Small nucleolar RNA Z161/Z228: a 95-nucleotide sequence from Tetracentron sinense.
It scores 58 bits against the family's covariance model.
A reference for the family is Chen et al. (2003), "The high diversity of snoRNAs in plants: identification and comparative study of 120 snoRNA genes from Oryza sativa", Nucleic Acids Res.
RNA sequence: AAAACAGGUGAUGAGAUUGGAUUAAAUUUCUACGACGGUCAUAUGAGACACUUACUAGUGUUAUAUGAUGCAAUGAUCCCGUUUUUCUGAUGGUU
Numbered sequence: 001a002a003a004a005c006a007g008g009u010g011a012u013g014a015g016a017u018u019g020g021a022u023u024a025a026a027u028u029u030c031u032a033c034g035a036c037g038g039u040c041a042u043a044u045g046a047g048a049c050a051c052u053u054a055c056u057a058g059u060g061u062u063a064u065a066u067g068a069u070g071c072a073a074u075g076a077u078c079c080c081g082u083u084u085u086u087c088u089g090a091u092g093g094u095u
Stems, first nucleotide, its partner, number of pairs: 001095002049060003